UnaL2 LINE 3' element: a 54-nucleotide sequence from Electrophorus electricus. Taxonomically the source falls in Electrophorus (Eukaryota, Opisthokonta, Vertebrata, Teleostei).
[Rfam]
RNA sequence: CUAAAUCACUUUUGUAAGUCGCUCUGGAUAAGAGCGUCUGCUAAAUGCCAUAAA
Dot-bracket structure: ............((((...((((((.....))))))..))).)...........
The family's consensus secondary structure is taken from published work. Rfam links the family to the GO term transposition, RNA-mediated.